[Rfam]
This 61-nucleotide RNA from Salarias fasciatus belongs to the Rfam family "Selenocysteine insertion sequence 1".
On this family, see Walczak et al., RNA 1996: "A novel RNA structural motif in the selenocysteine insertion element of eukaryotic selenoprotein mRNAs".
The family's consensus secondary structure is taken from published work.
The organism belongs to Salarias, within Eukaryota.
The match comes from Rfam's covariance-model search (37 bits).
By type it is a cis-regulatory element.
RNA sequence: ACUUUUUACAUGACGACCACAGUGCAAACCUCUCGUCGCUGUGGUUUGAUGACUUGAAAGU
Numbered sequence: 001a002c003u004u005u006u007u008a009c010a011u012g013a014c015g016a017c018c019a020c021a022g023u024g025c026a027a028a029c030c031u032c033u034c035g036u037c038g039c040u041g042u043g044g045u046u047u048g049a050u051g052a053c054u055u056g057a058a059a060g061u
Stems, first nucleotide, its partner, number of pairs: 001061005015046010030035001
Dot-bracket structure: (((((.........((((((((((.....(....).))))))))))..........)))))